[Rfam]
RNA: MIR4374 microRNA precursor family
RNA sequence: CAAAAACGGUGCUUACAUCAGCAACGUCUUUGAAAGUACGCAUUUUAAGACGGUGCUUAUAUCAGCAACGUCUUAGAAUGUCUACUUUCAAAGACGUUGUUGAGGUAAGCACUGUCUUA
Numbered sequence: 001c002a003a004a005a006a007c008g009g010u011g012c013u014u015a016c017a018u019c020a021g022c023a024a025c026g027u028c029u030u031u032g033a034a035a036g037u038a039c040g041c042a043u044u045u046u047a048a049g050a051c052g053g054u055g056c057u058u059a060u061a062u063c064a065g066c067a068a069c070g071u072c073u074u075a076g077a078a079u080g081u082c083u084a085c086u087u088u089c090a091a092a093g094a095c096g097u098u099g100u101u102g103a104g105g106u107a108a109g110c111a112c113u114g115u116c117u118u119a
Stems, first nucleotide, its partner, number of pairs: 004117001006115002009112008018103003022099017041080012054067004